[Rfam]
A member of the RNA family "Fusobacteriales-1 RNA" from Hungatella hathewayi, 119 nucleotides long. The family has 13 seed sequences and 28 matches in Rfam 15.1. Taxonomically the source falls in Hungatella hathewayi (Bacteria, Bacillati, Lachnospiraceae, Hungatella).
RNA sequence: UCAUACCUUUCGCAAUGUAGGACAAAAAACAUUGUAUGAUACAAAGAUGCUUCACAAUGUGCAAUAAAAAACAUUGUACAAUACAAAUACCCUUCACAAUGUGGGACAAAAAACAUUGU
Numbered sequence: 001u002c003a004u005a006c007c008u009u010u011c012g013c014a015a016u017g018u019a020g021g022a023c024a025a026a027a028a029a030c031a032u033u034g035u036a037u038g039a040u041a042c043a044a045a046g047a048u049g050c051u052u053c054a055c056a057a058u059g060u061g062c063a064a065u066a067a068a069a070a071a072c073a074u075u076g077u078a079c080a081a082u083a084c085a086a087a088u089a090c091c092c093u094u095c096a097c098a099a100u101g102u103g104g105g106a107c108a109a110a111a112a113a114c115a116u117u118g119u
Stems, first nucleotide, its partner, number of pairs: 006021003012035007048063003054077007090105003096119007